[Rfam]
RNA: small nucleolar RNA snoR135
Organism: Hibiscus trionum
RNA sequence: ACAGCAAGGAUAGUGUGUAUCGACAAUGCACGAAAUUUCCAUCGCACUCUGUUCGAAAGAAUUUCCUACAAAAUUAAUUUGGGGAAGAUGAGCAGUUGUGCUUCAUAUCCACGGUUGAUUCUUUUCAACAAUCAUCUUCUCCGUAUUC
Numbered sequence: 001a002c003a004g005c006a007a008g009g010a011u012a013g014u015g016u017g018u019a020u021c022g023a024c025a026a027u028g029c030a031c032g033a034a035a036u037u038u039c040c041a042u043c044g045c046a047c048u049c050u051g052u053u054c055g056a057a058a059g060a061a062u063u064u065c066c067u068a069c070a071a072a073a074u075u076a077a078u079u080u081g082g083g084g085a086a087g088a089u090g091a092g093c094a095g096u097u098g099u100g101c102u103u104c105a106u107a108u109c110c111a112c113g114g115u116u117g118a119u120u121c122u123u124u125u126c127a128a129c130a131a132u133c134a135u136c137u138u139c140u141c142c143g144u145a146u147u148c
Base pairs, nucleotide, nucleotide: 004069006067008065009064010063015047016046017045018044019042020041081142082141083140084139085138086137087136088135089134090133091132095129096128097127098126